[Rfam]
RNA sequence: CGACAGAACUCUGGAGAGAUCCCAUAAUGGGGCGCCGAAGGGGCAAAGCGACAGUAAUUAGCAGAAUCUCUCAGGCAAAAGGACAGAGGAUUCAGG
Number, nucleotide and partner (000 for none) at each position: 001c000002g000003a000004c000005a000006g091007a000008a000009c088010u087011c086012u085013g084014g000015a000016g000017a000018g000019a000020u032021c031022c030023c029024a000025u000026a000027a000028u000029g023030g022031g021032g020033c000034g076035c075036c074037g072038a071039a000040g000041g070042g069043g068044c000045a000046a000047a000048g062049c000050g000051a000052c000053a000054g000055u000056a000057a000058u000059u000060a000061g000062c048063a000064g000065a000066a000067u000068c043069u042070c041071u038072c037073a000074g036075g035076c034077a000078a000079a000080a000081g000082g000083a000084c013085a012086g011087a010088g009089g000090a000091u006092u000093c000094a000095g000096g000
RNA: Glycine riboswitch aptamer